[Rfam]
RNA: MIR2619 microRNA precursor family
RNA sequence: AAAUAGCCCCCUAUGUAUUGGAUCUUUGGCAGUUUUGGCCCCCAAGGCCAAUUUUGACUUGGUCUUCAGUGAUGUGGCAAUUUAAAAUAAAUAAAAAUAUUUUUUUAUUUUACUUUUUUAAAUAAUUAAAAAAAAUUAUUUAAAAAAAAUUAUUUUUUUAAUUUCAAAAAUUAAAAAAAUUAUUUUUUAAAUAAAAAAAGUCCACGUGUGCGUUGACCGAGGUAAAAUUGGCCUUGGGGGCCAAAACUGCCAAAGAUCCAAUACAUAGGGGGCUGUUU
Numbered sequence: 001a002a003a004u005a006g007c008c009c010c011c012u013a014u015g016u017a018u019u020g021g022a023u024c025u026u027u028g029g030c031a032g033u034u035u036u037g038g039c040c041c042c043c044a045a046g047g048c049c050a051a052u053u054u055u056g057a058c059u060u061g062g063u064c065u066u067c068a069g070u071g072a073u074g075u076g077g078c079a080a081u082u083u084a085a086a087a088u089a090a091a092u093a094a095a096a097a098u099a100u101u102u103u104u105u106u107a108u109u110u111u112a113c114u115u116u117u118u119u120a121a122a123u124a125a126u127u128a129a130a131a132a133a134a135a136u137u138a139u140u141u142a143a144a145a146a147a148a149a150u151u152a153u154u155u156u157u158u159u160a161a162u163u164u165c166a167a168a169a170a171u172u173a174a175a176a177a178a179a180u181u182a183u184u185u186u187u188u189a190a191a192u193a194a195a196a197a198a199a200g201u202c203c204a205c206g207u208g209u210g211c212g213u214u215g216a217c218c219g220a221g222g223u224a225a226a227a228u229u230g231g232c233c234u235u236g237g238g239g240g241c242c243a244a245a246a247c248u249g250c251c252a253a254a255g256a257u258c259c260a261a262u263a264c265a266u267a268g269g270g271g272g273c274u275g276u277u278u
Base pairs, nucleotide, nucleotide: 001278002277004275005274006273007272008271012267013266014265015264016263017262018261019260020259021258022257023256024255025254026253027252028251029250030249031248032247033246034245035244036243037242038241039240040239041238042237043236044235045234072207073206075204076203077202080201081200082199083198